[Rfam]
ASdes TB sRNA: a 68-nucleotide RNA sequence from Streptomyces formicae. The source organism's lineage runs through Bacteria, Bacillati, Actinomycetota, Streptomycetaceae and Streptomyces. The match comes from Rfam's covariance-model search (63 bits). By type it is a small RNA.

RNA sequence: AGGGCGCGCGGGUCGACGGCCCGGGUGACCAGGAGGUAGUCGCGCAGCGCGGUGCCGUGCCUGGCCUC
Dot-bracket structure: .....(....(((..((.......)).)))....((((.(((((...)))))))))....).......